Description:
A member of the RNA family "Small nucleolar RNA SNORD63" from Microcaecilia unicolor, 64 nucleotides long. A reference for the family is Galardi et al. (2002), "Purified box C/D snoRNPs are able to reproduce site-specific 2'-O-methylation of target RNA in vitro", Mol Cell Biol. The organism belongs to Microcaecilia, within Eukaryota.
RNA sequence: GUGCAGUGAUGACUUCAACGCAUCAUUCUGAAACUGUCGUAGAGAACUUUAUUAACUGAGCACA
Numbered sequence: 001g002u003g004c005a006g007u008g009a010u011g012a013c014u015u016c017a018a019c020g021c022a023u024c025a026u027u028c029u030g031a032a033a034c035u036g037u038c039g040u041a042g043a044g045a046a047c048u049u050u051a052u053u054a055a056c057u058g059a060g061c062a063c064a
Stems, first nucleotide, its partner, number of pairs: 001063004

By type it is a C/D-box small nucleolar RNA. From the family's description: snoRNA U63 is found in both humans and mice. The family's consensus secondary structure was predicted with PFOLD. A search with the family's covariance model found it, with a score of 53 bits.